The family of this 136-nucleotide RNA sequence from Bacillus sp. V5-8f is "FMN riboswitch aptamer (RFN element)". The RFN element is a highly conserved domain that is found frequently in the 5'-untranslated regions of prokaryotic mRNAs that encode for flavin mononucleotide (FMN) biosynthesis and transport proteins. It scores 122 bits against the family's covariance model. The organism belongs to Bacillus, within Bacteria.
RNA sequence: GUCUAUCUUCGGGGCGGGGUGUAAUUCCCCACCGGCGGUGAUGAAGCAAGUCCCUUCUAAGCCCGCGAGCCUUCUUGAGGCAGGAUUUGGUGAAAUUCCAAAGCCGACAGUAUAGUCUGGAUGGGAGAAGAUGGAG
Numbered sequence: 001g002u003c004u005a006u007c008u009u010c011g012g013g014g015c016g017g018g019g020u021g022u023a024a025u026u027c028c029c030c031a032c033c034g035g036c037g038g039u040g041a042u043g044a045a046g047c048a049a050g051u052c053c054c055u056u057c058u059a060a061g062c063c064c065g066c067g068a069g070c071c072u073u074c075u076u077g078a079g080g081c082a083g084g085a086u087u088u089g090g091u092g093a094a095a096u097u098c099c100a101a102a103g104c105c106g107a108c109a110g111u112a113u114a115g116u117c118u119g120g121a122u123g124g125g126a127g128a129a130g131a132u133g134g135a136g
Base pairs, nucleotide, nucleotide: 003134004133005132006131007130008129009128010127017029018028019027031116032115033106034105035066036065037064038063061104062103071080086102087101088100089099090098108119109118110117